A member of the RNA family "Sense overlapping transcript RNA 0042 (sot)" from Natrialba magadii, 170 nucleotides long.
The literature on the family includes a 2015 paper in RNA Biol by Gomes-Filho et al., "Sense overlapping transcripts in IS1341-type transposase genes are functional non-coding RNAs in archaea".
The family's consensus secondary structure was predicted with RNAfold.
Rfam describes the family as follows. It is associated with IS1341-type transposase (tnpB) genes, at the 3'-end in H. salinarum NRC-1. The tetraloop structural motif may be functional.
The family's RNA type in Rfam is small RNA.
A search with the family's covariance model found it, with a score of 169 bits.
Rfam 15.1 lists 196 matches to the family in 82 species.
[Rfam]
RNA sequence: AAGUAUCUCCGAGUCUCGCCUGUGACGGAGGAGAUAGGAGUAACGGCUGGUUGGUACAGCCAUCGACGUUCUUGUUUGACAAGAAAACUGGUGUGUUCGCACCUCAAGAGCAGGUCACGUCGUAAACCACAAUACCCCAACGUGGGAAUCCUCGCGCUUCAGCGCGGGGA
Numbered sequence: 001a002a003g004u005a006u007c008u009c010c011g012a013g014u015c016u017c018g019c020c021u022g023u024g025a026c027g028g029a030g031g032a033g034a035u036a037g038g039a040g041u042a043a044c045g046g047c048u049g050g051u052u053g054g055u056a057c058a059g060c061c062a063u064c065g066a067c068g069u070u071c072u073u074g075u076u077u078g079a080c081a082a083g084a085a086a087a088c089u090g091g092u093g094u095g096u097u098c099g100c101a102c103c104u105c106a107a108g109a110g111c112a113g114g115u116c117a118c119g120u121c122g123u124a125a126a127c128c129a130c131a132a133u134a135c136c137c138c139a140a141c142g143u144g145g146g147a148a149u150c151c152u153c154g155c156g157c158u159u160c161a162g163c164g165c166g167g168g169g170a
Stems, first nucleotide, its partner, number of pairs: 003044002007040004013035003016031002019028002045061005064122006071114007090103005136146003149170009